[Rfam]
The record is a 94-nucleotide sequence from Sorghum bicolor, which matches "MIR5387 microRNA precursor family" in Rfam. Gene Ontology terms of the family: RISC complex and miRNA-mediated post-transcriptional gene silencing. It scores 75 bits against the family's covariance model.
RNA sequence: UUGUAACAUGGGCCAGUGCUAAAGGGUCCUGCCCAACAACUACUGACAGGUGCUGUCGGGGCAGGGACCCUUUAGCAUCGGUUCUAAUUACCAA
Number, nucleotide and partner (000 for none) at each position: 001u000002u000003g091004u090005a089006a088007c000008a000009u000010g084011g083012g082013c081014c080015a000016g078017u077018g076019c075020u074021a073022a072023a071024g070025g069026g068027u067028c000029c065030u064031g000032c060033c059034c058035a000036a056037c055038a000039a000040c000041u000042a000043c049044u048045g000046a000047c000048a044049g043050g000051u000052g000053c000054u000055g037056u036057c000058g034059g033060g032061g000062c000063a000064g030065g029066g000067a027068c026069c025070c024071u023072u022073u021074a020075g019076c018077a017078u016079c000080g014081g013082u012083u011084c010085u000086a000087a000088u006089u005090a004091c003092c000093a000094a000